A member of the RNA family "Small nucleolar RNA SNORD19" from Anolis carolinensis, 76 nucleotides long. The family is grouped with related families in Rfam's "SNORD19 clan". The match comes from Rfam's covariance-model search (42 bits). The family's RNA type in Rfam is C/D-box small nucleolar RNA.
RNA sequence: GAGAAAUGAGGAUACAUAUUGUUUGUCUUACUGUUAUUGUGAAGACUUCAGAUCCAACUCUGAUCUCACUUUCUGG
Numbered sequence: 001g002a003g004a005a006a007u008g009a010g011g012a013u014a015c016a017u018a019u020u021g022u023u024u025g026u027c028u029u030a031c032u033g034u035u036a037u038u039g040u041g042a043a044g045a046c047u048u049c050a051g052a053u054c055c056a057a058c059u060c061u062g063a064u065c066u067c068a069c070u071u072u073c074u075g076g
Stems, first nucleotide, its partner, number of pairs: 001067004